Background: This 110-nucleotide RNA from Corynebacterium epidermidicanis belongs to the Rfam family "mraW RNA". Pairs were carried over by alignment from the consensus structure, which is taken from published work.

RNA sequence: GGAGUUUGUGUGUAUAAGGACUCCGCUCGAGUGGUUGAUUGUUCUGGUGUACUUCCCCGACAUCAGAGCCGUCCCAUUCGAGCGGAGCCCUAUACACACUAGGUCGCAGG
Numbered sequence: 001g002g003a004g005u006u007u008g009u010g011u012g013u014a015u016a017a018g019g020a021c022u023c024c025g026c027u028c029g030a031g032u033g034g035u036u037g038a039u040u041g042u043u044c045u046g047g048u049g050u051a052c053u054u055c056c057c058c059g060a061c062a063u064c065a066g067a068g069c070c071g072u073c074c075c076a077u078u079c080g081a082g083c084g085g086a087g088c089c090c091u092a093u094a095c096a097c098a099c100u101a102g103g104u105c106g107c108a109g110g
Stems, first nucleotide, its partner, number of pairs: 010097007018090002021087014038072002041069010